[Rfam]
RNA sequence: ACGACCUUACUUGAACAGGAUCUGUUCUAUAGGCUCGUACCGCUGCAUCCUUUACCAAUAAGGAGGCAAGCACUUCAGUUUGGUUGAUGCAUUCUGAUCUCUAGACCAGAGCUUGAUUAACGGUCAGGAUUCACCUGAUGGGUGUUAUCCGAUGGCUGUAGAGGAUCGUUCUUAGAUUGGCUUCUGUCUCUACAGGGUGGCCUAGAGGUUGUCUGACAGAUA
Numbered sequence: 001a002c003g004a005c006c007u008u009a010c011u012u013g014a015a016c017a018g019g020a021u022c023u024g025u026u027c028u029a030u031a032g033g034c035u036c037g038u039a040c041c042g043c044u045g046c047a048u049c050c051u052u053u054a055c056c057a058a059u060a061a062g063g064a065g066g067c068a069a070g071c072a073c074u075u076c077a078g079u080u081u082g083g084u085u086g087a088u089g090c091a092u093u094c095u096g097a098u099c100u101c102u103a104g105a106c107c108a109g110a111g112c113u114u115g116a117u118u119a120a121c122g123g124u125c126a127g128g129a130u131u132c133a134c135c136u137g138a139u140g141g142g143u144g145u146u147a148u149c150c151g152a153u154g155g156c157u158g159u160a161g162a163g164g165a166u167c168g169u170u171c172u173u174a175g176a177u178u179g180g181c182u183u184c185u186g187u188c189u190c191u192a193c194a195g196g197g198u199g200g201c202c203u204a205g206a207g208g209u210u211g212u213c214u215g216a217c218a219g220a221u222a
Stems, first nucleotide, its partner, number of pairs: 001038002003035001005033003013027006044068003048064005078221005097209008106200003110170003120159006127150004132144004172195002176191001179188003